[Rfam]
RNA sequence: UGUCUCCUCUAUCCGCCUAGGAUGGAUUCGCCCCGCCCGAUCGACGACCGGCGGGGCUUUUUUC
Numbered sequence: 001u002g003u004c005u006c007c008u009c010u011a012u013c014c015g016c017c018u019a020g021g022a023u024g025g026a027u028u029c030g031c032c033c034c035g036c037c038c039g040a041u042c043g044a045c046g047a048c049c050g051g052c053g054g055g056g057c058u059u060u061u062u063u064c
Stems, first nucleotide, its partner, number of pairs: 008026007030057008